[Rfam]
RNA sequence: AUACUUACGUAAUCGCUAUGCAUUUAAAUAUGUGUAGAGGAAAGUCCAUGCUCACACAAACUGAGAUGUUUGUAGUGUUCGUGCCUGACGAAAUCAUAAGUCAGGGUAAUAACGGCAACAGAAAAUCCUAAGUCCUUGUAGAUACGGAUGAAUAUGUUUGAAAGUGCCACAGUGACGAAGCUGGUUUGGAAACAAAUCAGGUGGAACGAGGUAAACCCCGCGAGUGAGCAACCCAAAUAUUGGUAGGGGCAUUCUUGAUUAGGGAACUCAACCGAAAAAGAGACAAGCGUAUACUUGUAGAUAAAUGAUUACGACCCUGGUACGAGGUUGACUACCGUUUGUAGUACAAAGGUACAGAACAUGGCUUAUCAAG
Numbered sequence: 001a002u003a004c005u006u007a008c009g010u011a012a013u014c015g016c017u018a019u020g021c022a023u024u025u026a027a028a029u030a031u032g033u034g035u036a037g038a039g040g041a042a043a044g045u046c047c048a049u050g051c052u053c054a055c056a057c058a059a060a061c062u063g064a065g066a067u068g069u070u071u072g073u074a075g076u077g078u079u080c081g082u083g084c085c086u087g088a089c090g091a092a093a094u095c096a097u098a099a100g101u102c103a104g105g106g107u108a109a110u111a112a113c114g115g116c117a118a119c120a121g122a123a124a125a126u127c128c129u130a131a132g133u134c135c136u137u138g139u140a141g142a143u144a145c146g147g148a149u150g151a152a153u154a155u156g157u158u159u160g161a162a163a164g165u166g167c168c169a170c171a172g173u174g175a176c177g178a179a180g181c182u183g184g185u186u187u188g189g190a191a192a193c194a195a196a197u198c199a200g201g202u203g204g205a206a207c208g209a210g211g212u213a214a215a216c217c218c219c220g221c222g223a224g225u226g227a228g229c230a231a232c233c234c235a236a237a238u239a240u241u242g243g244u245a246g247g248g249g250c251a252u253u254c255u256u257g258a259u260u261a262g263g264g265a266a267c268u269c270a271a272c273c274g275a276a277a278a279a280g281a282g283a284c285a286a287g288c289g290u291a292u293a294c295u296u297g298u299a300g301a302u303a304a305a306u307g308a309u310u311a312c313g314a315c316c317c318u319g320g321u322a323c324g325a326g327g328u329u330g331a332c333u334a335c336c337g338u339u340u341g342u343a344g345u346a347c348a349a350a351g352g353u354a355c356a357g358a359a360c361a362u363g364g365c366u367u368a369u370c371a372a373g
Stems, first nucleotide, its partner, number of pairs: 004373003007369001008313007016037006042367003046364005051228005056073006079223005084105006106113001107111001114218002117158004125149004132143003164216002166212003181200008232248003252282005283298005315352002318349001320347004

Description:
A member of the RNA family "Bacterial RNase P class B" from Cerasibacillus terrae, 373 nucleotides long. On this family, see Frank and Pace, Annu Rev Biochem 1998: "Ribonuclease P: unity and diversity in a tRNA processing ribozyme". Ribonuclease P (RNase P) is a ubiquitous endoribonuclease, found in archaea, bacteria and eukarya as well as chloroplasts and mitochondria. Its best characterised activity is the generation of mature 5'-ends of tRNAs by cleaving the 5'-leader elements of precursor-tRNAs. Cellular RNase Ps are ribonucleoproteins. Pairs were carried over by alignment from the consensus structure, which is taken from published work.